[Rfam]
Shown here is a 114-nucleotide sequence from Rouxiella badensis, a member of the family "Fumarate/nitrate reductase regulator sRNA".
The match comes from Rfam's covariance-model search (103 bits).
It is annotated as a small RNA.

RNA sequence: GCAGGUGAAUGCAACGUCAAGCGAUGGGCGUUGUGCUCCAUAUUGUCUUAUUUAGUUAUUUAGAAUUAUUGCAUAGCGUUUGAUUCGAAUAAUGCCGGUCUAUGACCGGCUUUU
Numbered sequence: 001g002c003a004g005g006u007g008a009a010u011g012c013a014a015c016g017u018c019a020a021g022c023g024a025u026g027g028g029c030g031u032u033g034u035g036c037u038c039c040a041u042a043u044u045g046u047c048u049u050a051u052u053u054a055g056u057u058a059u060u061u062a063g064a065a066u067u068a069u070u071g072c073a074u075a076g077c078g079u080u081u082g083a084u085u086c087g088a089a090u091a092a093u094g095c096c097g098g099u100c101u102a103u104g105a106c107c108g109g110c111u112u113u114u
Stems, first nucleotide, its partner, number of pairs: 001046004007038002010035009063086006070078003094110007